[Rfam]
The family of this 94-nucleotide sequence from Eragrostis curvula is "Small nucleolar RNA snoR26".
Its family is annotated with nucleolus and RNA processing in the Gene Ontology.
For this family Rfam cites "Multiple snoRNA gene clusters from Arabidopsis" (Brown et al., RNA, 2001).
RNA sequence: GGAGCAUCAGGUGAUGUUACAUCCAAAUUUACUCAUCCUUGCACUUUGAGCUUUGCAGUGAAGAAACAACUGGGGAAUGUAGUCUGAGAUGCUC
Dot-bracket structure: .(((((((...............................................................................)))))))
Annotation:
The match comes from Rfam's covariance-model search (79 bits). The family's RNA type in Rfam is C/D-box small nucleolar RNA. The organism belongs to Eragrostis, within Eukaryota.